[Rfam]
RNA sequence: CCGCCGAUCCGGGCCCCUCUGGCGAGAGGGCGGACGGCCGGCCGAUGCGCUGUGCCCAUGCCCCCGUGAUGUCGGAUCGACGUU
Numbered sequence: 001c002c003g004c005c006g007a008u009c010c011g012g013g014c015c016c017c018u019c020u021g022g023c024g025a026g027a028g029g030g031c032g033g034a035c036g037g038c039c040g041g042c043c044g045a046u047g048c049g050c051u052g053u054g055c056c057c058a059u060g061c062c063c064c065c066g067u068g069a070u071g072u073c074g075g076a077u078c079g080a081c082g083u084u
Stems, first nucleotide, its partner, number of pairs: 006078007022067003026063001028061001
The family of this 84-nucleotide RNA sequence from Teichococcus oryzae is "terC RNA". The organism belongs to Roseomonas, within Bacteria.